[Rfam]
Background:
The family of this 121-nucleotide RNA sequence from Paenibacillus thalictri is "Bacillus sRNA ncr1015". The source organism's lineage runs through Bacteria, Bacillati, Caryophanales, Paenibacillaceae and Paenibacillus. By type it is a small RNA.
RNA sequence: UUGUAAGAUGUCAUAUUUAUGUUCAUUCUACCGUGAAUAUUCGUAAAAUGAUUAUAUCAUCGUGUUUGUUUAUAUGCAACAAUACCUGAGAACCUGGCAGAAAUGCUUGAGGUUUUUUUGA
Numbered sequence: 001u002u003g004u005a006a007g008a009u010g011u012c013a014u015a016u017u018u019a020u021g022u023u024c025a026u027u028c029u030a031c032c033g034u035g036a037a038u039a040u041u042c043g044u045a046a047a048a049u050g051a052u053u054a055u056a057u058c059a060u061c062g063u064g065u066u067u068g069u070u071u072a073u074a075u076g077c078a079a080c081a082a083u084a085c086c087u088g089a090g091a092a093c094c095u096g097g098c099a100g101a102a103a104u105g106c107u108u109g110a111g112g113u114u115u116u117u118u119u120g121a
Stems, first nucleotide, its partner, number of pairs: 033073006039065002042062002084117001089116007097108001